[Rfam]
RNA sequence: GUGCAGAAGAAGAAGCACCCGCUUCUCACCUGAUUGACGCGUAUAGAGCAGUUAGCAGGUUGACAUCGUAUUUACUUUUAACGAUAGUAGUGUGGGUGCAUUGUGUACUCACGCUUUUUUGUGUGU
Number, nucleotide and partner (000 for none) at each position: 001g000002u000003g000004c000005a000006g000007a000008a000009g000010a000011a026012g025013a024014a023015g022016c021017a000018c000019c000020c000021g016022c015023u014024u013025c012026u011027c000028a060029c059030c058031u000032g000033a000034u000035u000036g053037a052038c051039g049040c048041g000042u000043a000044u000045a000046g000047a000048g040049c039050a000051g038052u037053u036054a000055g000056c000057a000058g030059g029060u028061u000062g000063a000064c000065a000066u000067c000068g000069u000070a000071u000072u000073u000074a000075c000076u000077u000078u000079u000080a000081a000082c000083g000084a000085u000086a000087g000088u000089a000090g000091u113092g112093u111094g110095g109096g108097u107098g106099c105100a104101u000102u000103g000104u100105g099106u098107a097108c096109u095110c094111a093112c092113g091114c000115u000116u000117u000118u000119u000120u000121g000122u000123g000124u000125g000126u000
The family of this 126-nucleotide RNA from Priestia veravalensis is "Ribosomal protein L20 leader". The family's consensus secondary structure was predicted with CMfinder. NCBI's taxonomy places the organism under Bacteria, Bacillati, Bacillota, Caryophanales, Priestia. The match comes from Rfam's covariance-model search (75 bits). From the family's description: This family is a putative r-protein leader autoregulatory structure found in B. subtilis and other low-GC Gram-positive bacteria.